FMN riboswitch aptamer (RFN element): a 165-nucleotide RNA sequence from Lentibacter algarum.
Taxonomically the source falls in Lentibacter (Bacteria, Pseudomonadota, Alphaproteobacteria, Rhodobacterales).
RNA sequence: CGGCGUUCUCAGGGCGGGGUGUAAUUCCCCACCGGCGGUAAGCCCGCGACGAAAGUCAAAGGUAAGCCCGCGAGCGCUUCGUGCCUUGUUCGCAAGACACUUGGGUCAGCAGAUCUGGUGCAAUUCCAGAGCCGACGGUCAUAGUCCGGAUGGGAGAGAGCAGCA
Numbered sequence: 001c002g003g004c005g006u007u008c009u010c011a012g013g014g015c016g017g018g019g020u021g022u023a024a025u026u027c028c029c030c031a032c033c034g035g036c037g038g039u040a041a042g043c044c045c046g047c048g049a050c051g052a053a054a055g056u057c058a059a060a061g062g063u064a065a066g067c068c069c070g071c072g073a074g075c076g077c078u079u080c081g082u083g084c085c086u087u088g089u090u091c092g093c094a095a096g097a098c099a100c101u102u103g104g105g106u107c108a109g110c111a112g113a114u115c116u117g118g119u120g121c122a123a124u125u126c127c128a129g130a131g132c133c134g135a136c137g138g139u140c141a142u143a144g145u146c147c148g149g150a151u152g153g154g155a156g157a158g159a160g161c162a163g164c165a
Stems, first nucleotide, its partner, number of pairs: 005161006017029003031145002033134002035071004066132002074110002114130005136148003